A member of the RNA family "SAM riboswitch aptamer (S box leader)" from Thermoflavimicrobium dichotomicum, 159 nucleotides long. Lineage of the source: Bacteria > Bacillati > Bacilli > Caryophanales > Thermoflavimicrobium.
RNA sequence: CUCUUAUCAAGAGUAGGCGGAGGGACGAGCCCGAUGAAGCCCAGCAACCGACCGUAAUGCCAUCGUGAGAUGGGGCACCUGAGACAAUCAGGGGCCGUGGCAUCCAGCCACAUAAGGCACGGUGCUAAUUCUCGCAGCGUUUAGGCUGAGAGAUAAGAG
Numbered sequence: 001c002u003c004u005u006a007u008c009a010a011g012a013g014u015a016g017g018c019g020g021a022g023g024g025a026c027g028a029g030c031c032c033g034a035u036g037a038a039g040c041c042c043a044g045c046a047a048c049c050g051a052c053c054g055u056a057a058u059g060c061c062a063u064c065g066u067g068a069g070a071u072g073g074g075g076c077a078c079c080u081g082a083g084a085c086a087a088u089c090a091g092g093g094g095c096c097g098u099g100g101c102a103u104c105c106a107g108c109c110a111c112a113u114a115a116g117g118c119a120c121g122g123u124g125c126u127a128a129u130u131c132u133c134g135c136a137g138c139g140u141u142u143a144g145g146c147u148g149a150g151a152g153a154u155a156a157g158a159g
Base pairs, nucleotide, nucleotide: 001159002158003157004156005155006154007153008152013042016041017040018039022032023031024030026134027133028132029131043126044125045124046123048122049121050118052116130151135148136147137146138145

From the family's description: The SAM riboswitch is found upstream of a number of genes which code for proteins involved in methionine or cysteine biosynthesis in Gram-positive bacteria. A search with the family's covariance model found it, with a score of 73 bits.